[Rfam]
RNA: 7SK RNA
RNA sequence: GGAUGUGAAGGCAAUCUAGCUGCAGCAUCUGUCACCCCGUUGAUUGCUGGGGUUGAUUUGGCUGAUUUGUCUCGUUAGGCUGGGUGUCCCCUUCCUCCCUCAAUGCCUCCCUGUGUGUUCCUCCUGAAGCUGCACAUUCGGUUGCAGAGGAGAACAUCCCCAACAGAUUUUUUUGGCUGAAAAGUGGUCCAGCAGAGAAGGGCCUGAGAGUGCUGGUCAACAGCUGGCUUAACAUGAGCCAGCUGUGCCCAGGAGGGCACAAAGGCCAGUGGCAAUCCUGGCCUGUGUCAGACAUAGUGGGGCCAGCAGGACCAG
Numbered sequence: 001g002g003a004u005g006u007g008a009a010g011g012c013a014a015u016c017u018a019g020c021u022g023c024a025g026c027a028u029c030u031g032u033c034a035c036c037c038c039g040u041u042g043a044u045u046g047c048u049g050g051g052g053u054u055g056a057u058u059u060g061g062c063u064g065a066u067u068u069g070u071c072u073c074g075u076u077a078g079g080c081u082g083g084g085u086g087u088c089c090c091c092u093u094c095c096u097c098c099c100u101c102a103a104u105g106c107c108u109c110c111c112u113g114u115g116u117g118u119u120c121c122u123c124c125u126g127a128a129g130c131u132g133c134a135c136a137u138u139c140g141g142u143u144g145c146a147g148a149g150g151a152g153a154a155c156a157u158c159c160c161c162a163a164c165a166g167a168u169u170u171u172u173u174u175g176g177c178u179g180a181a182a183a184g185u186g187g188u189c190c191a192g193c194a195g196a197g198a199a200g201g202g203c204c205u206g207a208g209a210g211u212g213c214u215g216g217u218c219a220a221c222a223g224c225u226g227g228c229u230u231a232a233c234a235u236g237a238g239c240c241a242g243c244u245g246u247g248c249c250c251a252g253g254a255g256g257g258c259a260c261a262a263a264g265g266c267c268a269g270u271g272g273c274a275a276u277c278c279u280g281g282c283c284u285g286u287g288u289c290a291g292a293c294a295u296a297g298u299g300g301g302g303c304c305a306g307c308a309g310g311a312c313c314a315g
Stems, first nucleotide, its partner, number of pairs: 001110003005104001006102003010098002014093001019090001025087006031080003035074001038069002042067004046062003122167002124141004129137001142163003149159003213252003220246002223243009278315003282310005287303003290298001
Dot-bracket structure: (((.((((.((..(....(.....(((((((((.(..((..(((((((...........))).))))))....)...))).))))))..)..)...)).))).)...)))...........((((((.(.......)))))(((....(((.....))).)))..)).............................................(((....((.(((((((((...))))))))).))...))).........................(((.(((((((((.......)..)))..)))))..)))